[Rfam]
Overview: Rfam assigns this 106-nucleotide sequence from Saccharopolyspora phatthalungensis to the family "TPP riboswitch aptamer (THI element)". The organism belongs to Saccharopolyspora, within Bacteria.
Nucleotides: 106
Base pairs, nucleotide, nucleotide: 006094007093009091010090011057012056013055014054017031018030019029020028021027038051039050040049041048042047062087063086064085065084068081069080070079071078
Number, partner (000 for none) and nucleotide at each position: 001000c002000u003000c004000g005000g006094u007093g008000a009091g010090c011057a012056c013055g014054g015000g016000a017031g018030u019029c020028c021027g022000g023000g024000c025000a026000c027021c028020g029019g030018g031017c032000u033000g034000a035000g036000a037000g038051g039050g040049g041048g042047c043000g044000u045000u046000g047042g048041c049040c050039c051038c052000g053000a054014c055013c056012g057011u058000c059000g060000a061000a062087c063086c064085u065084g066000a067000u068081c069080c070079g071078g072000g073000u074000c075000a076000u077000g078071c079070c080069g081068g082000c083000g084065c085064a086063g087062g088000g089000a090010g091009c092000g093007u094006g095000g096000a097000g098000c099000u100000a101000g102000u103000u104000g105000u106000c